About this RNA: Small nucleolar RNA Z119: a 95-nucleotide RNA from Brachypodium distachyon. Its family is annotated with nucleolus and RNA processing in the Gene Ontology. On this family, see Chen et al., Nucleic Acids Res 2003: "The high diversity of snoRNAs in plants: identification and comparative study of 120 snoRNA genes from Oryza sativa".

RNA sequence: UUGUGGAGAUGAUGAUUAUCAGAGGCUGUUUCUGAGGAUGAGUCUAGAGCUCUUCCCGUGCUGUAAAAUAACUGAUUUGCCUAUCUGAUCCAAAG
Numbered sequence: 001u002u003g004u005g006g007a008g009a010u011g012a013u014g015a016u017u018a019u020c021a022g023a024g025g026c027u028g029u030u031u032c033u034g035a036g037g038a039u040g041a042g043u044c045u046a047g048a049g050c051u052c053u054u055c056c057c058g059u060g061c062u063g064u065a066a067a068a069u070a071a072c073u074g075a076u077u078u079g080c081c082u083a084u085c086u087g088a089u090c091c092a093a094a095g
Stems, first nucleotide, its partner, number of pairs: 004092004040052004063080005
Rfam 15.1 lists 93 matches to the family in 28 species.